[Rfam]
RNA sequence: ACAUUUACCUGGCAGGGGAGAUACUGUGAUCAUGAAGAUGGUUUUCCCAGGGAGAGGCUCAUGCAUUGCACCCUGGGUGUGCUGACCCCUGCAAUUUCCCCAGAUGUGGGAAACUCUACUGCAUGAUUUGUGGUAGUGGGGGACUGUGUUUGUGCUUUCCCCUG
Numbered sequence: 001a002c003a004u005u006u007a008c009c010u011g012g013c014a015g016g017g018g019a020g021a022u023a024c025u026g027u028g029a030u031c032a033u034g035a036a037g038a039u040g041g042u043u044u045u046c047c048c049a050g051g052g053a054g055a056g057g058c059u060c061a062u063g064c065a066u067u068g069c070a071c072c073c074u075g076g077g078u079g080u081g082c083u084g085a086c087c088c089c090u091g092c093a094a095u096u097u098c099c100c101c102a103g104a105u106g107u108g109g110g111a112a113a114c115u116c117u118a119c120u121g122c123a124u125g126a127u128u129u130g131u132g133g134u135a136g137u138g139g140g141g142g143a144c145u146g147u148g149u150u151u152g153u154g155c156u157u158u159c160c161c162c163u164g
Stems, first nucleotide, its partner, number of pairs: 012122004016048006023042005049090004054086001056083003060079003064075001094115001095113003099109002138163006146155003
Dot-bracket structure: ...........((((((((((.(((((..........)))))))))))((((.(.(((.(((.(..........).))).)))..)))))...((((.((.......)).))).)...))))...............((((((..(((....)))..)))))).
RNA: U1 spliceosomal RNA
Organism: Camelus dromedarius